The family of this 71-nucleotide RNA from Methanosphaerula palustris is "L4-Archaeoglobi ribosomal protein leades". Pairs were carried over by alignment from the consensus structure, which is taken from published work. For this family Rfam cites "Discovery of 20 novel ribosomal leader candidates in bacteria and archaea" (Eckert and Weinberg, BMC Microbiol, 2020). Rfam classes the family as a cis-regulatory leader. NCBI's taxonomy places the organism under Archaea, Methanobacteriati, Methanobacteriota, Methanosphaerula, Methanosphaerula palustris.
RNA sequence: CUGAAGGACAGUGGGUGGACGUUCGUGCAACGAGCCCGUUCCUGCACACUGCAGGAGAUUGUCCUGUUCAG
Numbered sequence: 001c002u003g004a005a006g007g008a009c010a011g012u013g014g015g016u017g018g019a020c021g022u023u024c025g026u027g028c029a030a031c032g033a034g035c036c037c038g039u040u041c042c043u044g045c046a047c048a049c050u051g052c053a054g055g056a057g058a059u060u061g062u063c064c065u066g067u068u069c070a071g
Stems, first nucleotide, its partner, number of pairs: 001071005006064005012038004020032004040056007